Annotation: A member of the RNA family "Lysine riboswitch aptamer" from Vibrio cholerae, 178 nucleotides long.
RNA sequence: UCUAGCAGAAGAGGAGCACUGCCCAGGCAGAUGUUUUGUGGAGCCUCAACUCCAAUACAGAACAUUCAGGGGGAGUAGUGCCGAGGUGAAUCAAAGUUGUGGCUUUGGUUUAUCGGUUGAACGGGCUGAAUCCCUUCAACUGUCAUCAGCUCGAAUCUGAUGAAGAGCUUCUGAGGGA
Numbered sequence: 001u002c003u004a005g006c007a008g009a010a011g012a013g014g015a016g017c018a019c020u021g022c023c024c025a026g027g028c029a030g031a032u033g034u035u036u037u038g039u040g041g042a043g044c045c046u047c048a049a050c051u052c053c054a055a056u057a058c059a060g061a062a063c064a065u066u067c068a069g070g071g072g073g074a075g076u077a078g079u080g081c082c083g084a085g086g087u088g089a090a091u092c093a094a095a096g097u098u099g100u101g102g103c104u105u106u107g108g109u110u111u112a113u114c115g116g117u118u119g120a121a122c123g124g125g126c127u128g129a130a131u132c133c134c135u136u137c138a139a140c141u142g143u144c145a146u147c148a149g150c151u152c153g154a155a156u157c158u159g160a161u162g163a164a165g166a167g168c169u170u171c172u173g174a175g176g177g178a
Base pairs, nucleotide, nucleotide: 006173007172008171009170010169011168016081017080018079019078020077021076022075024073030066031065032064033063034062035061036060037059085114086113087112088111089110090109091108092107093106094105095104096103115141116140117139118138119137120136121135123134124133125132143163144162145161146160147159148158149157

The match comes from Rfam's covariance-model search (94 bits).